Rfam assigns this 86-nucleotide sequence from Capsicum baccatum to the family "MIR8024 microRNA precursor family". The family has 2 seed sequences and 661 matches in Rfam 15.1. Pairs were carried over by alignment from the consensus structure, which was predicted with RNAalifold. The organism belongs to Capsicum, within Eukaryota. A search with the family's covariance model found it, with a score of 62 bits.

[Rfam]
RNA sequence: UUGGAAGAUUUGGAAACUUCAACAUGCAGACUUGGUAAAUUUGAUGAUAUCAACUUGUAGACUUUGCAGAUUAAAAGACUUCAACU
Numbered sequence: 001u002u003g004g005a006a007g008a009u010u011u012g013g014a015a016a017c018u019u020c021a022a023c024a025u026g027c028a029g030a031c032u033u034g035g036u037a038a039a040u041u042u043g044a045u046g047a048u049a050u051c052a053a054c055u056u057g058u059a060g061a062c063u064u065u066g067c068a069g070a071u072u073a074a075a076a077g078a079c080u081u082c083a084a085c086u
Base pairs, nucleotide, nucleotide: 001084002083003082004081005080009076010075011074013072014071019066021064025059026058027057028056032053033052034051035050036049037048